[Rfam]
RNA sequence: UCAAAACAAUCAGGAGAGUGCAGUGCAAAACCUGUUUUUGCGCUGCCGCCGAAGGCGCAGGACCGAUAAAUCCGGGACUCAAACGCUCAGGCAAAAGGACUGACGACACCUC
Numbered sequence: 001u002c003a004a005a006a007c008a009a010u011c012a013g014g015a016g017a018g019u020g021c022a023g024u025g026c027a028a029a030a031c032c033u034g035u036u037u038u039u040g041c042g043c044u045g046c047c048g049c050c051g052a053a054g055g056c057g058c059a060g061g062a063c064c065g066a067u068a069a070a071u072c073c074g075g076g077a078c079u080c081a082a083a084c085g086c087u088c089a090g091g092c093a094a095a096a097g098g099a100c101u102g103a104c105g106a107c108a109c110c111u112c
Stems, first nucleotide, its partner, number of pairs: 010103004020046009048092003051088002055086003061080002

A member of the RNA family "Glycine riboswitch aptamer" from Saezia sanguinis, 112 nucleotides long. NCBI's taxonomy places the organism under Bacteria, Pseudomonadati, Betaproteobacteria, Burkholderiales, Saezia. Gene Ontology term of the family: glycine biosynthetic process. Rfam 15.1 lists 9,425 matches to the family in 5,228 species.